The record is a 131-nucleotide RNA sequence from Pluralibacter gergoviae, which matches "RtT RNA" in Rfam. A reference for the family is Bosl and Kersten (1991), "A novel RNA product of the tyrT operon of Escherichia coli", Nucleic Acids Res. Its family is annotated with cellular response to amino acid starvation in the Gene Ontology. It scores 141 bits against the family's covariance model. About the family: This family represents a bacterial cis-regulatory element known as RtT RNA. The exact function of RtT is unknown although it is thought that it may be involved in changing the cellular response in relation to amino acid starvation. Lineage of the source: Bacteria > Pseudomonadati > Pseudomonadota > Enterobacteriaceae > Pluralibacter.
RNA sequence: UUUUUCUCCAACCGGGGAAGGAUGAGAAGCUUCGACCAAGGUUCGAUUCGAGCGCAGCGAGAAAGCGUUGCCGCAGGCAACGACCCGAAGGGCGAGGAGCGUAGCGACGAGUAAUCCUUCCCCCACCACCA
Numbered sequence: 001u002u003u004u005u006c007u008c009c010a011a012c013c014g015g016g017g018a019a020g021g022a023u024g025a026g027a028a029g030c031u032u033c034g035a036c037c038a039a040g041g042u043u044c045g046a047u048u049c050g051a052g053c054g055c056a057g058c059g060a061g062a063a064a065g066c067g068u069u070g071c072c073g074c075a076g077g078c079a080a081c082g083a084c085c086c087g088a089a090g091g092g093c094g095a096g097g098a099g100c101g102u103a104g105c106g107a108c109g110a111g112u113a114a115u116c117c118u119u120c121c122c123c124c125a126c127c128a129c130c131a
Stems, first nucleotide, its partner, number of pairs: 015122007023114001033094002036092002042089004049059002066082006